[Rfam]
RNA: Mason-Pfizer monkey virus packaging signal
RNA sequence: UGGCGCCCAACGUGGGGCUUGGAUACGGGGGAAUCCGUGAGGAAGACGACGUGGAAGCCGGCCGAGAAUAAAAGUGAAAGAAAACUGUUUCUGCCGCCGCGGGAGCCUGCCGCGUCGGACCUGCAGGUAAGUGUCACGUUCGGAAAUGGGACAAGAAUUAAGCCAGCAUGACCUUUAUGUAGACCAAUUAAAAAAGGCUUUAAAGGCACGAGGAGUAAAGGUUAAAUACGCUGAUCUACUGAAAUUUUUUGACUUUGUUAAAGAUACUUGCCCUU
Numbered sequence: 001u002g003g004c005g006c007c008c009a010a011c012g013u014g015g016g017g018c019u020u021g022g023a024u025a026c027g028g029g030g031g032a033a034u035c036c037g038u039g040a041g042g043a044a045g046a047c048g049a050c051g052u053g054g055a056a057g058c059c060g061g062c063c064g065a066g067a068a069u070a071a072a073a074g075u076g077a078a079a080g081a082a083a084a085c086u087g088u089u090u091c092u093g094c095c096g097c098c099g100c101g102g103g104a105g106c107c108u109g110c111c112g113c114g115u116c117g118g119a120c121c122u123g124c125a126g127g128u129a130a131g132u133g134u135c136a137c138g139u140u141c142g143g144a145a146a147u148g149g150g151a152c153a154a155g156a157a158u159u160a161a162g163c164c165a166g167c168a169u170g171a172c173c174u175u176u177a178u179g180u181a182g183a184c185c186a187a188u189u190a191a192a193a194a195a196g197g198c199u200u201u202a203a204a205g206g207c208a209c210g211a212g213g214a215g216u217a218a219a220g221g222u223u224a225a226a227u228a229c230g231c232u233g234a235u236c237u238a239c240u241g242a243a244a245u246u247u248u249u250u251g252a253c254u255u256u257g258u259u260a261a262a263g264a265u266a267c268u269u270g271c272c273c274u275u
Stems, first nucleotide, its partner, number of pairs: 006031003012026003036048003084128003087124002093120001094118002098114005134154001139150004159202003162198003209251008219237006260275002263272001265270001